[Rfam]
RNA sequence: CUCUUAUCCGGAGCGGCGGAGGGACUGGCCCAAUGAAGCCCGGCAACCGUUGGGAGUUAAGAACCCAAAAUGGUGCUAAUUCCAGCAGAAGAUUUUUCUUCUGGCAGAUGAGAG
Dot-bracket structure: ((((((((....(.(((...(((.[[[[)))......))))((((.((.(((((.........)))))...))))))...(]]]]((((((......))))))..)))))))))
RNA: SAM riboswitch aptamer (S box leader)
Organism: Pelotomaculum isophthalicicum